[Rfam]
Rfam assigns this 431-nucleotide part of an RNA from Donacobius atricapilla to the family "Eukaryotic large subunit ribosomal RNA".
RNA sequence: GAUGUGUUGUUGUAAUAGUAAUCCUGCUCAGUACAAGAGGAACCACAGGUUCAGACCCCUGGUGCAUGCGCUUGGCUGAGGAGCCACUGGUGCGAGGCUACCAUCUGCAGGCUCAUGACUGAAUGCUUCUAAGUCAGAAUCCCACCUAGAUGUAGCCAUACCGCAGUACCACCAGUGCCUCAGUGGGCUCAUGAUAGCCAGCUGCCCACCCAUCUGCAGGCAGGCCCGGUGAGGAGUGCCACUCGUGGUCAGGGGUGGAGGGGCGGACAGAUGAGGCACCACCUCUCCCCCAUAAUGUACCACAUGACUGUGGGGCACCCGGCACUAAAUCAUUCAUAGACAAACCUGAUUCUGGGUCAGGGUUUCAUAAGUAGCAGAGCAGCUCCCUCACUGUGAUCUAUUGAAAACCAGCCCUUGACACAAGCUUUUGU
Numbered sequence: 001g002a003u004g005u006g007u008u009g010u011u012g013u014a015a016u017a018g019u020a021a022u023c024c025u026g027c028u029c030a031g032u033a034c035a036a037g038a039g040g041a042a043c044c045a046c047a048g049g050u051u052c053a054g055a056c057c058c059c060u061g062g063u064g065c066a067u068g069c070g071c072u073u074g075g076c077u078g079a080g081g082a083g084c085c086a087c088u089g090g091u092g093c094g095a096g097g098c099u100a101c102c103a104u105c106u107g108c109a110g111g112c113u114c115a116u117g118a119c120u121g122a123a124u125g126c127u128u129c130u131a132a133g134u135c136a137g138a139a140u141c142c143c144a145c146c147u148a149g150a151u152g153u154a155g156c157c158a159u160a161c162c163g164c165a166g167u168a169c170c171a172c173c174a175g176u177g178c179c180u181c182a183g184u185g186g187g188c189u190c191a192u193g194a195u196a197g198c199c200a201g202c203u204g205c206c207c208a209c210c211c212a213u214c215u216g217c218a219g220g221c222a223g224g225c226c227c228g229g230u231g232a233g234g235a236g237u238g239c240c241a242c243u244c245g246u247g248g249u250c251a252g253g254g255g256u257g258g259a260g261g262g263g264c265g266g267a268c269a270g271a272u273g274a275g276g277c278a279c280c281a282c283c284u285c286u287c288c289c290c291c292a293u294a295a296u297g298u299a300c301c302a303c304a305u306g307a308c309u310g311u312g313g314g315g316c317a318c319c320c321g322g323c324a325c326u327a328a329a330u331c332a333u334u335c336a337u338a339g340a341c342a343a344a345c346c347u348g349a350u351u352c353u354g355g356g357u358c359a360g361g362g363u364u365u366c367a368u369a370a371g372u373a374g375c376a377g378a379g380c381a382g383c384u385c386c387c388u389c390a391c392u393g394u395g396a397u398c399u400a401u402u403g404a405a406a407a408c409c410a411g412c413c414c415u416u417g418a419c420a421c422a423a424g425c426u427u428u429u430g431u
Stems, first nucleotide, its partner, number of pairs: 006159002009156005016148003021051001023049004052107004060100003067094005073086005110142002116136005169322002327429003332351001334349003354421001356419004360414003364407002371401004376397001379394004
The family's consensus secondary structure is taken from published work.